[Rfam]
RNA sequence: UCGAUCAAGCUCGGGUUUCGUGGAUGCUCGAGCUGUGUUGAUAAAUUCCAGUUCGUUGUCGACGAAACCUGAACUGAAGUCGG
Numbered sequence: 001u002c003g004a005u006c007a008a009g010c011u012c013g014g015g016u017u018u019c020g021u022g023g024a025u026g027c028u029c030g031a032g033c034u035g036u037g038u039u040g041a042u043a044a045a046u047u048c049c050a051g052u053u054c055g056u057u058g059u060c061g062a063c064g065a066a067a068c069c070u071g072a073a074c075u076g077a078a079g080u081c082g083g
Stems, first nucleotide, its partner, number of pairs: 001083005012071009030054005
Dot-bracket structure: (((((......(((((((((.........(((((...............)))))........))))))))).......)))))